[Rfam]
RNA sequence: UACGAGAAUUGGUGGACUAGGGUCCAAAUCAAAAUACCCCGCUUGACGGGGUUUUUUUGUUUUUGGCGAAGUCGUUUUUAAACGAUGAUGAAAUUGGGCUUCUAGCCCUUUUUUU
Numbered sequence: 001u002a003c004g005a006g007a008a009u010u011g012g013u014g015g016a017c018u019a020g021g022g023u024c025c026a027a028a029u030c031a032a033a034a035u036a037c038c039c040c041g042c043u044u045g046a047c048g049g050g051g052u053u054u055u056u057u058u059g060u061u062u063u064u065g066g067c068g069a070a071g072u073c074g075u076u077u078u079u080a081a082a083c084g085a086u087g088a089u090g091a092a093a094u095u096g097g098g099c100u101u102c103u104a105g106c107c108c109u110u111u112u113u114u115u
Base pairs, nucleotide, nucleotide: 033055034054036052037051038050039049040048041047096108097107098106099105